Record summary
mir-30 microRNA precursor family: a 79-nucleotide RNA sequence from Salmo trutta. The family's consensus secondary structure was predicted with PFOLD. For this family Rfam cites "microRNAs: tiny regulators with great potential" (Ambros, Cell, 2001). It scores 69 bits against the family's covariance model. Rfam describes the family as follows. This family consists of the mammalian microRNA (miRNA) precursor mir-30a.
[Rfam]
RNA sequence: GGAGGCGCUGUAAACAUCCUUGACUGGAAGCUGGGGUUUGGACAGCAAGGGCUUUCAGUCGGAUGUUUGCAGCGUCUGG
Numbered sequence: 001g002g003a004g005g006c007g008c009u010g011u012a013a014a015c016a017u018c019c020u021u022g023a024c025u026g027g028a029a030g031c032u033g034g035g036g037u038u039u040g041g042a043c044a045g046c047a048a049g050g051g052c053u054u055u056c057a058g059u060c061g062g063a064u065g066u067u068u069g070c071a072g073c074g075u076c077u078g079g
Stems, first nucleotide, its partner, number of pairs: 003077004008072012023059010

Rfam 15.1 lists 3,879 matches to the family in 647 species.